[Rfam]
RNA sequence: AGUUCGUUUCAGGGCGGGGUGCAAUUCCCCACCGGCGGUAUAGCCCGCGACCACCCCUAUGGGGUGCUGACUCGGUGAGACUCCGAGGCCGACGGUAUAGUCCGGAUGCAAGAAACGGCAG
Numbered sequence: 001a002g003u004u005c006g007u008u009u010c011a012g013g014g015c016g017g018g019g020u021g022c023a024a025u026u027c028c029c030c031a032c033c034g035g036c037g038g039u040a041u042a043g044c045c046c047g048c049g050a051c052c053a054c055c056c057c058u059a060u061g062g063g064g065u066g067c068u069g070a071c072u073c074g075g076u077g078a079g080a081c082u083c084c085g086a087g088g089c090c091g092a093c094g095g096u097a098u099a100g101u102c103c104g105g106a107u108g109c110a111a112g113a114a115a116c117g118g119c120a121g
Stems, first nucleotide, its partner, number of pairs: 004118007017029003031101002033091002035048004043089002052066002071087005093104003
Rfam assigns this 121-nucleotide sequence from Faecalibacterium sp. CAG:82 to the family "FMN riboswitch aptamer (RFN element)". A search with the family's covariance model found it, with a score of 114 bits. NCBI's taxonomy places the organism under Bacteria, Bacillati, Clostridia, Oscillospiraceae, Faecalibacterium.